[Rfam]
ylbH leader: a 135-nucleotide RNA sequence.
Its family is annotated with regulation of gene expression in the Gene Ontology.
For this family Rfam cites "New RNA motifs suggest an expanded scope for riboswitches in bacterial genetic control" (Barrick et al., Proc Natl Acad Sci U S A, 2004).
A search with the family's covariance model found it, with a score of 53 bits.

RNA sequence: UAAAAAAAACCCCCUUUUUAAAAAAAAGGGGCCCCCCCAAAAAAUUUUUUUUUUUUUGGGGGGAAAGGGGGGGGGGGAAAAAAAAAAGGGGGGGGGUUUUUUUUUUUAAAAAAACUUUUUUUUUUUUCCCCCCCC
Numbered sequence: 001u002a003a004a005a006a007a008a009a010c011c012c013c014c015u016u017u018u019u020a021a022a023a024a025a026a027a028g029g030g031g032c033c034c035c036c037c038c039a040a041a042a043a044a045u046u047u048u049u050u051u052u053u054u055u056u057u058g059g060g061g062g063g064a065a066a067g068g069g070g071g072g073g074g075g076g077g078a079a080a081a082a083a084a085a086a087a088g089g090g091g092g093g094g095g096g097u098u099u100u101u102u103u104u105u106u107u108a109a110a111a112a113a114a115c116u117u118u119u120u121u122u123u124u125u126u127u128c129c130c131c132c133c134c135c
Stems, first nucleotide, its partner, number of pairs: 011031009032063005039056006072132004077128004082124010